[Rfam]
RNA sequence: GCCGGGUGCAGUGGCGCUCGCCUGUGAUCCAAGUUACCGGGAGGCUGAGGCUGGUGGAUCGCUUGAGCUCAGGAGCUCUGGGCUGCAGCGCGCUAUGCCGAUCGGGUGUCCGCACUAAGUUCGGUAUGGACAUGGUGCUCCUGGGGGAGCCCGGGAUCACCAGGUCGUCUAAGGAGGGGUGCACCGAUCCAGGUCGGAAACGGAGCAGGUCAAAGCCCCCGUGCCGCUCAGUAGUGGGAUCGUGCCUGUGAAUAGACGUUGUAGUGCAGCCUGAGUAACACAGUGGGACCCAGCCUUUU
Numbered sequence: 001g002c003c004g005g006g007u008g009c010a011g012u013g014g015c016g017c018u019c020g021c022c023u024g025u026g027a028u029c030c031a032a033g034u035u036a037c038c039g040g041g042a043g044g045c046u047g048a049g050g051c052u053g054g055u056g057g058a059u060c061g062c063u064u065g066a067g068c069u070c071a072g073g074a075g076c077u078c079u080g081g082g083c084u085g086c087a088g089c090g091c092g093c094u095a096u097g098c099c100g101a102u103c104g105g106g107u108g109u110c111c112g113c114a115c116u117a118a119g120u121u122c123g124g125u126a127u128g129g130a131c132a133u134g135g136u137g138c139u140c141c142u143g144g145g146g147g148a149g150c151c152c153g154g155g156a157u158c159a160c161c162a163g164g165u166c167g168u169c170u171a172a173g174g175a176g177g178g179g180u181g182c183a184c185c186g187a188u189c190c191a192g193g194u195c196g197g198a199a200a201c202g203g204a205g206c207a208g209g210u211c212a213a214a215g216c217c218c219c220c221g222u223g224c225c226g227c228u229c230a231g232u233a234g235u236g237g238g239a240u241c242g243u244g245c246c247u248g249u250g251a252a253u254a255g256a257c258g259u260u261g262u263a264g265u266g267c268a269g270c271c272u273g274a275g276u277a278a279c280a281c282a283g284u285g286g287g288a289c290c291c292a293g294c295c296u297u298u299u
Stems, first nucleotide, its partner, number of pairs: 001045003004023005028042003047297008059286005067276007078269003082265009093255004098250001103248007110238002113236005119229001122226006129166003133162005139156007168174002176219005186211004194203003
Rfam assigns this 299-nucleotide sequence from Gasterosteus aculeatus to the family "Metazoan signal recognition particle RNA". Rfam describes the family as follows. The signal recognition particle (SRP) is a universally conserved ribonucleoprotein. It is involved in the co-translational targeting of proteins to membranes. The eukaryotic SRP consists of a 300-nucleotide 7S RNA and six proteins: SRPs 72, 68, 54, 19, 14, and 9. Archaeal SRP consists of a 7S RNA and homologues of the eukaryotic SRP19 and SRP54 proteins. Eukaryotic and archaeal 7S RNAs have very similar secondary structures, as represented by this family. Eight helical elements fold into the Alu and S domains, separated by a long linker region. The Alu domain is thought to mediate the peptide chain elongation retardation function of the SRP. The universally conserved helix which interacts with the SRP54 M domain mediates signal sequence recognition. In eukaryotes and archaea, the SRP19-helix 6 complex is thought to be involved in SRP assembly and stabilises helix 8 for SRP54 binding. The Signal Recognition Particle Database (SRPDB) provides compilations of SRP components, with phylogenetic data and structural illustrations. Many sequences below the threshold for this family are clearly closely related, but are most likely to be SRP RNA derived pseudogenes. The human genome in particular is known to contain a large amount of SRP RNA related sequence, including Alu repeats. While the threshold of this family is set high so as to minimise the number of hits to such regions, it is likely that some remain. Gene Ontology terms of the family: SRP-dependent cotranslational protein targeting to membrane, signal sequence recognition and signal recognition particle, endoplasmic reticulum targeting. Its Rfam clan is "SRP clan". The family's consensus secondary structure is taken from published work. By type it is a non-coding RNA gene. Lineage of the source: Eukaryota > Craniata > Euteleosteomorpha > Eupercaria > Gasterosteus.